A member of the RNA family "mir-9256 microRNA precursor family" from Pipistrellus kuhlii, 67 nucleotides long.
Taxonomically the source falls in Pipistrellus (Eukaryota, Craniata, Euteleostomi, Yangochiroptera).
RNA sequence: ACCUACAUGGAGUGGCCAGAUUAUUAUGAUUUCUGAAUGCAUAAUAAUCUGGCCACUCAAUGUAUAU
Numbered sequence: 001a002c003c004u005a006c007a008u009g010g011a012g013u014g015g016c017c018a019g020a021u022u023a024u025u026a027u028g029a030u031u032u033c034u035g036a037a038u039g040c041a042u043a044a045u046a047a048u049c050u051g052g053c054c055a056c057u058c059a060a061u062g063u064a065u066a067u
Stems, first nucleotide, its partner, number of pairs: 004064005010058008019049010